[Rfam]
RNA sequence: UGCGCAGCGCGUGCUUGAGGACGAUCUGCUGGAAGGAGACGCCCUUGAGGCGGGCCGUCCGGAUAUACUGGGCGGUCAUCACCUCGGUCAUCGAGGCCCGCGUCAUCCGGGCGAUAUAUCCCAUGCCGUAAAGCGCGAUGGUCAGCACGGGCAGGGUGAAGUUCUCGAAGGUGAUGU
Numbered sequence: 001u002g003c004g005c006a007g008c009g010c011g012u013g014c015u016u017g018a019g020g021a022c023g024a025u026c027u028g029c030u031g032g033a034a035g036g037a038g039a040c041g042c043c044c045u046u047g048a049g050g051c052g053g054g055c056c057g058u059c060c061g062g063a064u065a066u067a068c069u070g071g072g073c074g075g076u077c078a079u080c081a082c083c084u085c086g087g088u089c090a091u092c093g094a095g096g097c098c099c100g101c102g103u104c105a106u107c108c109g110g111g112c113g114a115u116a117u118a119u120c121c122c123a124u125g126c127c128g129u130a131a132a133g134c135g136c137g138a139u140g141g142u143c144a145g146c147a148c149g150g151g152c153a154g155g156g157u158g159a160a161g162u163u164c165u166c167g168a169a170g171g172u173g174a175u176g177u
Base pairs, nucleotide, nucleotide: 005140006139008137009136010135011134012133015130016128017127019126021124031120040111042109046105047104048103050101051100052099053098054097055075056074057073058072059071060070061069062068082096083095084094085093086092147177151172152171154165155164156163
The record is a 177-nucleotide sequence from Jannaschia seohaensis, which matches "Ruegeria cis52 sRNA" in Rfam. Rfam classes the family as a small RNA. The base pairs follow the family's consensus structure, which was predicted with RNAfold. A reference for the family is Rivers et al. (2016), "Experimental Identification of Small Non-Coding RNAs in the Model Marine Bacterium Ruegeria pomeroyi DSS-3", Front Microbiol. Taxonomically the source falls in Jannaschia (Bacteria, Pseudomonadati, Pseudomonadota, Rhodobacterales). The match comes from Rfam's covariance-model search (137 bits).